[Rfam]
RNA sequence: GCAACGUAGCUGGGUAUGCGUCUUAGUCAUACUGUUCACAACAAGGGUUAUGACUAGAUCCAUACUCAGCUCUGCGACAAG
Number, nucleotide and partner (000 for none) at each position: 001g000002c000003a000004a000005c076006g075007u074008a073009g072010c069011u068012g067013g066014g065015u064016a063017u062018g061019c000020g060021u000022c000023u000024u000025a055026g054027u053028c052029a051030u050031a049032c000033u000034g000035u000036u000037c000038a000039c000040a000041a000042c000043a000044a000045g000046g000047g000048u000049u031050a030051u029052g028053a027054c026055u025056a000057g000058a000059u000060c020061c018062a017063u016064a015065c014066u013067c012068a011069g010070c000071u000072c009073u008074g007075c006076g005077a000078c000079a000080a000081g000

Rfam assigns this 81-nucleotide RNA from Bursaphelenchus xylophilus to the family "mir-44 microRNA precursor family".